RNA sequence: CCAAAACUAACUACUUGUUAUUUUUCAAUUGGUUUUUAUAAAAUUUUAACAUAGUAAGAACCAAUUAGAAAAUAACAAGUGGCUAGUUUUGG
Numbered sequence: 001c002c003a004a005a006a007c008u009a010a011c012u013a014c015u016u017g018u019u020a021u022u023u024u025u026c027a028a029u030u031g032g033u034u035u036u037u038a039u040a041a042a043a044u045u046u047u048a049a050c051a052u053a054g055u056a057a058g059a060a061c062c063a064a065u066u067a068g069a070a071a072a073u074a075a076c077a078a079g080u081g082g083c084u085a086g087u088u089u090u091g092g
Stems, first nucleotide, its partner, number of pairs: 002091008011082015027066013

Source information:
The family of this 92-nucleotide sequence from Prunus avium is "MIR6288 microRNA precursor family". Gene Ontology terms of the family: RISC complex and miRNA-mediated post-transcriptional gene silencing. The match comes from Rfam's covariance-model search (77 bits). Rfam 15.1 lists 293 matches to the family in 9 species.